[Rfam]
RNA sequence: AAUAUAGGAACGCAGGCUAAAUACGCCACGUCCUCCCAAAAGCAGAGCUCUUGGUCUUGCGAUGUGUCGCUGUCGCAGCUUUCCUUGUCCUGUGGCAACGCCUGCAUGACCCACAUCCUGUUGA
Numbered sequence: 001a002a003u004a005u006a007g008g009a010a011c012g013c014a015g016g017c018u019a020a021a022u023a024c025g026c027c028a029c030g031u032c033c034u035c036c037c038a039a040a041a042g043c044a045g046a047g048c049u050c051u052u053g054g055u056c057u058u059g060c061g062a063u064g065u066g067u068c069g070c071u072g073u074c075g076c077a078g079c080u081u082u083c084c085u086u087g088u089c090c091u092g093u094g095g096c097a098a099c100g101c102c103u104g105c106a107u108g109a110c111c112c113a114c115a116u117c118c119u120g121u122u123g124a
Stems, first nucleotide, its partner, number of pairs: 012105006025096005111123001113121002
Shown here is a 124-nucleotide RNA from Cytobacillus dafuensis, a member of the family "Bacillaceae-1 RNA". Rfam 15.1 lists 5,721 matches to the family in 247 species. The match comes from Rfam's covariance-model search (62 bits). It is annotated as a small RNA.